[Rfam]
RNA sequence: GAAGUCGGCUGGACAGUCGCGUCAUCCGAGAGGAUGCCGAGGAAAGUCCGGGCUCCAUAGGGCAAGGUGCCAGGUAACACCUGGGCGGCGUGAGUCGACGGAAAGUGCAACAGAAAGAUACCGCCAAUAUUCCUUUCUAGGAUUCGGUAAGGGUGAAAUGGUGCGGUAAGAGCGCACCGCGAGUUCGGUAACGGACCGGCACGGCAAACCCCACCUGGAGCAAGACCAAAUAGGGAUCCUAUGGUGUGGCUCGCGCUGGAUCCGGGUAGGUUGCUUGAGCACCGUGGUGACGCGGUGCCUAGAUGAAUGGCUGUUCAUGACAGAACCCGGCUUAUAGGCCGACUUCACCG
Numbered sequence: 001g002a003a004g005u006c007g008g009c010u011g012g013a014c015a016g017u018c019g020c021g022u023c024a025u026c027c028g029a030g031a032g033g034a035u036g037c038c039g040a041g042g043a044a045a046g047u048c049c050g051g052g053c054u055c056c057a058u059a060g061g062g063c064a065a066g067g068u069g070c071c072a073g074g075u076a077a078c079a080c081c082u083g084g085g086c087g088g089c090g091u092g093a094g095u096c097g098a099c100g101g102a103a104a105g106u107g108c109a110a111c112a113g114a115a116a117g118a119u120a121c122c123g124c125c126a127a128u129a130u131u132c133c134u135u136u137c138u139a140g141g142a143u144u145c146g147g148u149a150a151g152g153g154u155g156a157a158a159u160g161g162u163g164c165g166g167u168a169a170g171a172g173c174g175c176a177c178c179g180c181g182a183g184u185u186c187g188g189u190a191a192c193g194g195a196c197c198g199g200c201a202c203g204g205c206a207a208a209c210c211c212c213a214c215c216u217g218g219a220g221c222a223a224g225a226c227c228a229a230a231u232a233g234g235g236a237u238c239c240u241a242u243g244g245u246g247u248g249g250c251u252c253g254c255g256c257u258g259g260a261u262c263c264g265g266g267u268a269g270g271u272u273g274c275u276u277g278a279g280c281a282c283c284g285u286g287g288u289g290a291c292g293c294g295g296u297g298c299c300u301a302g303a304u305g306a307a308u309g310g311c312u313g314u315u316c317a318u319g320a321c322a323g324a325a326c327c328c329g330g331c332u333u334a335u336a337g338g339c340c341g342a343c344u345u346c347a348c349c350g
Stems, first nucleotide, its partner, number of pairs: 001346010011335001012315007020039002023036005044333003048330005053220004060252004065216005070084005085099001086097004100211002105209002107205002121152002123148003129144001131142004160178006179200001180198002183196005224272004234263006243257005279298008

The family of this 350-nucleotide RNA sequence from Xylella fastidiosa is "Bacterial RNase P class A".
Rfam's curators put it in the seed alignment.
The base pairs follow the family's consensus structure, which is taken from published work.
From the family's description: Ribonuclease P (RNase P) is a ubiquitous endoribonuclease, found in archaea, bacteria and eukarya as well as chloroplasts and mitochondria.